The record is an 85-nucleotide sequence from Cercopithifilaria johnstoni, which matches "mir-44 microRNA precursor family" in Rfam. Rfam 15.1 lists 66 matches to the family in 44 species.

RNA sequence: CAAAUACCAUUCUGGAUGUUCCUUUUAGUCAUAUGUGAAAUUUGAAUACCUUACGACUAGAGGAACAUUCAGCCUUGGUUAUGGU
Numbered sequence: 001c002a003a004a005u006a007c008c009a010u011u012c013u014g015g016a017u018g019u020u021c022c023u024u025u026u027a028g029u030c031a032u033a034u035g036u037g038a039a040a041u042u043u044g045a046a047u048a049c050c051u052u053a054c055g056a057c058u059a060g061a062g063g064a065a066c067a068u069u070c071a072g073c074c075u076u077g078g079u080u081a082u083g084g085u
Stems, first nucleotide, its partner, number of pairs: 006079004012072009022063002027058004032053002
A search with the family's covariance model found it, with a score of 70 bits. Gene Ontology terms of the family: miRNA-mediated post-transcriptional gene silencing and RISC complex.